tRNA: a 73-nucleotide sequence from Glycocaulis alkaliphilus. A search with the family's covariance model found it, with a score of 67 bits. The organism belongs to Glycocaulis, within Bacteria. Rfam classes the family as a transfer RNA.
RNA sequence: AGGGGUGUAGCUCAGCUGGUAGAGCGGCGGUCUCCAAAACCGCAGGCCGGGGGUUCGAGCCCCUCCGCCCCUG
Numbered sequence: 001a002g003g004g005g006u007g008u009a010g011c012u013c014a015g016c017u018g019g020u021a022g023a024g025c026g027g028c029g030g031u032c033u034c035c036a037a038a039a040c041c042g043c044a045g046g047c048c049g050g051g052g053g054u055u056c057g058a059g060c061c062c063c064u065c066c067g068c069c070c071c072u073g
Stems, first nucleotide, its partner, number of pairs: 001072007010025004027043005049065005